This 69-nucleotide RNA sequence from Saccharopolyspora phatthalungensis belongs to the Rfam family "ASpks TB sRNA".
RNA sequence: UUUCACCGAGCCUAGCCACAGCGGGAUUUCGCGGUCCUGGCCGUAGGUGGCUAGGAGUGCUUGUGCUUC
Numbered sequence: 001u002u003u004c005a006c007c008g009a010g011c012c013u014a015g016c017c018a019c020a021g022c023g024g025g026a027u028u029u030c031g032c033g034g035u036c037c038u039g040g041c042c043g044u045a046g047g048u049g050g051c052u053a054g055g056a057g058u059g060c061u062u063g064u065g066c067u068u069c
Base pairs, nucleotide, nucleotide: 016024017023028065030063032059033058037054038053039052041050042049043048
The base pairs follow the family's consensus structure, which is taken from published work.
On this family, see Arnvig and Young, Mol Microbiol 2009: "Identification of small RNAs in Mycobacterium tuberculosis".
By type it is an antisense RNA.